Rfam assigns this 111-nucleotide sequence from Gallus gallus to the family "Small nucleolar RNA SNORD67". Rfam describes the family as follows. snoRNA HBII-166 belongs to the C/D family of snoRNAs. Rfam links the family to the GO terms RNA processing and nucleolus. The source organism's lineage runs through Eukaryota, Bilateria, Vertebrata, Galloanserae and Gallus. On this family, see Huttenhofer et al., EMBO J 2001: "RNomics: an experimental approach that identifies 201 candidates for novel, small, non-messenger RNAs in mouse".

[Rfam]
RNA sequence: UGCGAGAGUGAUGAGCUGCACUCUGGUGGAGCAACCAUGUCAGGUGACGUGGUCUCUGCUCAGAAUCUCCCUGAUGACAAAACUAGGUGCACAGGGGCCAUCUGACUCGCU
Numbered sequence: 001u002g003c004g005a006g007a008g009u010g011a012u013g014a015g016c017u018g019c020a021c022u023c024u025g026g027u028g029g030a031g032c033a034a035c036c037a038u039g040u041c042a043g044g045u046g047a048c049g050u051g052g053u054c055u056c057u058g059c060u061c062a063g064a065a066u067c068u069c070c071c072u073g074a075u076g077a078c079a080a081a082a083c084u085a086g087g088u089g090c091a092c093a094g095g096g097g098c099c100a101u102c103u104g105a106c107u108c109g110c111u
Stems, first nucleotide, its partner, number of pairs: 004110001006108003022064004026059004031054001037050005